[Rfam]
RNA sequence: CGAUGAGGUAGAGGUUGCGGCUUUUAUUAGUAGAACGGAUUAGACACAGAGAAUGUCAAUGACUCCGUUUGAAAGGAAAUGCUGCCGAAGUUUGUAUUUCUUCUCUGGAAGUACGAGCUGGGGCUGUCUCCAAACAGGAACAGAACUGUCACGUUUACAAAGUACCGUGUAAACGUGGGGUGCUAUCUUAACG
Number, nucleotide and partner (000 for none) at each position: 001c000002g000003a000004u000005g000006a188007g187008g186009u185010a184011g183012a000013g000014g000015u000016u000017g085018c084019g083020g082021c081022u000023u079024u078025u077026a000027u000028u000029a000030g000031u000032a000033g070034a069035a068036c067037g066038g065039a064040u000041u000042a000043g000044a000045c000046a000047c000048a000049g000050a000051g000052a000053a000054u000055g000056u000057c000058a000059a000060u000061g000062a000063c000064u039065c038066c037067g036068u035069u034070u033071g000072a000073a000074a000075g000076g000077a025078a024079a023080u000081g021082c020083u019084g018085c017086c000087g000088a000089a119090g118091u117092u116093u115094g114095u113096a112097u111098u110099u109100c108101u000102u000103c000104u000105c000106u000107g000108g100109a099110a098111g097112u096113a095114c094115g093116a092117g091118c090119u089120g147121g146122g000123g000124c143125u142126g141127u140128c000129u138130c137131c000132a000133a000134a000135c000136a000137g130138g129139a000140a127141c126142a125143g124144a000145a000146c121147u120148g000149u178150c177151a176152c175153g174154u173155u172156u171157a170158c169159a168160a000161a000162g000163u000164a000165c000166c000167g000168u159169g158170u157171a156172a155173a154174c153175g152176u151177g150178g149179g000180g000181u000182g000183c011184u010185a009186u008187c007188u006189u000190a000191a000192c000193g000
The record is a 193-nucleotide sequence from Bacillus pseudomycoides, which matches "Lysine riboswitch aptamer" in Rfam.
Lineage of the source: Bacteria > Bacillati > Caryophanales > Bacillaceae > Bacillus.
Rfam's curators write: Riboswitches are metabolite binding domains within certain messenger RNAs that serve as precision sensors for their corresponding targets. Allosteric rearrangement of mRNA structure is mediated by ligand binding, and this results in modulation of gene expression. This family includes riboswitches that sense lysine in a number of genes involved in lysine metabolism, including lysC.
A search with the family's covariance model found it, with a score of 123 bits.